[Rfam]
RNA: S4-Flavobacteria ribosomal protein leader
RNA sequence: GAUCGUCGGAGGAUAAAGCCUUAAUUCAUGAUCUC
Numbered sequence: 001g002a003u004c005g006u007c008g009g010a011g012g013a014u015a016a017a018g019c020c021u022u023a024a025u026u027c028a029u030g031a032u033c034u035c
Stems, first nucleotide, its partner, number of pairs: 001035001002032005008027001009022004